[Rfam]
RNA: mir-1302 microRNA precursor family
RNA sequence: UUUACAGUAUAAGUAUGUCUUGUGUAAUAAUUAGGACAUACUUACACUAAAA
Numbered sequence: 001u002u003u004a005c006a007g008u009a010u011a012a013g014u015a016u017g018u019c020u021u022g023u024g025u026a027a028u029a030a031u032u033a034g035g036a037c038a039u040a041c042u043u044a045c046a047c048u049a050a051a052a
Stems, first nucleotide, its partner, number of pairs: 006048003010044003014040003018036004022031001